[Rfam]
A member of the RNA family "Small nucleolar RNA SNORA43" from Peromyscus maniculatus, 137 nucleotides long. ACA43 is a member of the H/ACA class of snoRNA that guide the sites of modification of uridines to pseudouridines. Rfam links the family to the GO terms nucleolus and RNA processing. By type it is an H/ACA-box small nucleolar RNA.

RNA sequence: GCUGGCCUGGAUCUGUCAGUACCACAGUCACAGCUGCUGGGCUGUGUCUGUGACAUUGGGGCAAAAAGCAAGUGUCCAUUCCUACACUCAGUGUUCAGAGGCAGUAAGCACUAAGAAUGGGUUAUAGCCUGACAUUU
Numbered sequence: 001g002c003u004g005g006c007c008u009g010g011a012u013c014u015g016u017c018a019g020u021a022c023c024a025c026a027g028u029c030a031c032a033g034c035u036g037c038u039g040g041g042c043u044g045u046g047u048c049u050g051u052g053a054c055a056u057u058g059g060g061g062c063a064a065a066a067a068g069c070a071a072g073u074g075u076c077c078a079u080u081c082c083u084a085c086a087c088u089c090a091g092u093g094u095u096c097a098g099a100g101g102c103a104g105u106a107a108g109c110a111c112u113a114a115g116a117a118u119g120g121g122u123u124a125u126a127g128c129c130u131g132a133c134a135u136u137u
Base pairs, nucleotide, nucleotide: 003063004062006060007059008058009057010056024051025050026049027048074129076127082120083119084118087115088114092110093109094108095107097105
Dot-bracket structure: ..((.(((((.............((((....................))))....))))).))..........(.(.....(((..((...((((.(.......).))))...))..)))......).)........